[Rfam]
RNA sequence: AACCGCAGGGAACUUCUUCUGCUGAUAUAUUAUAAAAAACUUUUAUAUCACAGUGGCUGUUCUUUUUGGUU
Numbered sequence: 001a002a003c004c005g006c007a008g009g010g011a012a013c014u015u016c017u018u019c020u021g022c023u024g025a026u027a028u029a030u031u032a033u034a035a036a037a038a039a040c041u042u043u044u045a046u047a048u049c050a051c052a053g054u055g056g057c058u059g060u061u062c063u064u065u066u067u068g069g070u071u
Stems, first nucleotide, its partner, number of pairs: 004068002007065007016056002019053003023050002026047004
This 71-nucleotide sequence from Drosophila gunungcola belongs to the Rfam family "mir-6 microRNA precursor family". Rfam 15.1 lists 58 matches to the family in 23 species. A reference for the family is Mourelatos et al. (2002), "miRNPs: a novel class of ribonucleoproteins containing numerous microRNAs", Genes Dev. It scores 76 bits against the family's covariance model. Pairs were carried over by alignment from the consensus structure, which was predicted with PFOLD. Rfam's curators write: This family consists of the microRNA (miRNA) precursor mir-6 which appears to be Drosophila specific. Animal miRNAs are transcribed as ~70nt precursors and subsequently processed by the Dicer enzyme to give a ~22nt product. In this case the mature sequence comes from the 3' arm of the precursor. The extents of the hairpin precursors are not generally known and are estimated based on hairpin prediction.